[Rfam]
RNA sequence: CCCUAACACCCAUAGCAACUCUGUAUAACCUUUAGAAUAUGGCUUAAGGGUCUCUACCAGGAACCAUAAAAAUCCUGAUUACAGAAAACGAUUUUUUCGUU
Numbered sequence: 001c002c003c004u005a006a007c008a009c010c011c012a013u014a015g016c017a018a019c020u021c022u023g024u025a026u027a028a029c030c031u032u033u034a035g036a037a038u039a040u041g042g043c044u045u046a047a048g049g050g051u052c053u054c055u056a057c058c059a060g061g062a063a064c065c066a067u068a069a070a071a072a073u074c075c076u077g078a079u080u081a082c083a084g085a086a087a088a089c090g091a092u093u094u095u096u097u098c099g100u101u
Base pairs, nucleotide, nucleotide: 020085021084022083023082024081025080029049030048031047032046034044035043058077059076060075061074062073

A member of the RNA family "Purine riboswitch aptamer" from Planomicrobium sp. CPCC 101110, 101 nucleotides long. Its family is annotated with purine nucleobase biosynthetic process in the Gene Ontology. NCBI's taxonomy places the organism under Bacteria, Bacillati, Bacilli, Caryophanaceae, Planomicrobium.